Rfam assigns this 84-nucleotide RNA sequence from Leminorella richardii to the family "RpsF leader". Rfam links the family to the GO terms negative regulation of translation and protein binding. A search with the family's covariance model found it, with a score of 97 bits. Rfam describes the family as follows. Conserved and widely distributed to many bacterial species RNA structure. It precedes operon containing rpsF, which encodes ribosomal protein S6. The motif also precedes operon containing rpsR, which encodes ribosomal protein S18. Lineage of the source: Bacteria > Pseudomonadati > Gammaproteobacteria > Enterobacterales > Leminorella. Pairs were carried over by alignment from the consensus structure.
RNA sequence: GUCUUUCUCACACACGUUCCUUGCUUCCAUGGGCCGCGGCUGACCCUGACAGGAGGCUGAAUAAUCCGUAAGGAGCUAUUGAUG
Numbered sequence: 001g002u003c004u005u006u007c008u009c010a011c012a013c014a015c016g017u018u019c020c021u022u023g024c025u026u027c028c029a030u031g032g033g034c035c036g037c038g039g040c041u042g043a044c045c046c047u048g049a050c051a052g053g054a055g056g057c058u059g060a061a062u063a064a065u066c067c068g069u070a071a072g073g074a075g076c077u078a079u080u081g082a083u084g
Stems, first nucleotide, its partner, number of pairs: 016076007023057006031046003